Description
The record is a 79-nucleotide sequence from Glycomyces buryatensis, which matches "Actino-pnp RNA" in Rfam. The match comes from Rfam's covariance-model search (64 bits).
[Rfam]
RNA sequence: UCCGGUCCUCGGUAGUGGCAUCCGGACGGUCCCGUGAACAACCGGGACACCGCUCCGUGUGCUUCGAUCGAAGACCGGU
Numbered sequence: 001u002c003c004g005g006u007c008c009u010c011g012g013u014a015g016u017g018g019c020a021u022c023c024g025g026a027c028g029g030u031c032c033c034g035u036g037a038a039c040a041a042c043c044g045g046g047a048c049a050c051c052g053c054u055c056c057g058u059g060u061g062c063u064u065c066g067a068u069c070g071a072a073g074a075c076c077g078g079u
Base pairs, nucleotide, nucleotide: 002078003077004076005075006074007073009071010070011069012068013067017063018062019061020060021059023057024056025055026054027052028051029050

Lineage of the source: Bacteria > Actinomycetota > Glycomycetales > Glycomycetaceae > Glycomyces.